[Rfam]
drz-agam-2-2 ribozyme: a 195-nucleotide sequence from Anopheles stephensi. For this family Rfam cites "Widespread occurrence of self-cleaving ribozymes" (Webb et al., Science, 2009). The organism belongs to Neocellia, within Eukaryota.
RNA sequence: UGGUACUGAUGCUCUAUUAAUGGGGUAGGAUCUGAGACUCCUUUCGGGGUUACACAGGCUCUCCUACCCAACUCCAAUUCCGUCACGUCCUCGUCGAACAGUUUGGUAACUUUCCCCACCACAUAUCCAAGCUUGGGUACACGGGCCUGUCCCAACCCCUUGGGCGAAUUGUGGAGACAGGCUAAACAGGAGGGG
Numbered sequence: 001u002g003g004u005a006c007u008g009a010u011g012c013u014c015u016a017u018u019a020a021u022g023g024g025g026u027a028g029g030a031u032c033u034g035a036g037a038c039u040c041c042u043u044u045c046g047g048g049g050u051u052a053c054a055c056a057g058g059c060u061c062u063c064c065u066a067c068c069c070a071a072c073u074c075c076a077a078u079u080c081c082g083u084c085a086c087g088u089c090c091u092c093g094u095c096g097a098a099c100a101g102u103u104u105g106g107u108a109a110c111u112u113u114c115c116c117c118a119c120c121a122c123a124u125a126u127c128c129a130a131g132c133u134u135g136g137g138u139a140c141a142c143g144g145g146c147c148u149g150u151c152c153c154a155a156c157c158c159c160u161u162g163g164g165c166g167a168a169u170u171g172u173g174g175a176g177a178c179a180g181g182c183u184a185a186a187c188a189g190g191a192g193g194g195g
Stems, first nucleotide, its partner, number of pairs: 011104001014101002017098001023069008032058002073195003078191002081189001086096002089106002110180002113177002116174004125169002128166001133155005157164002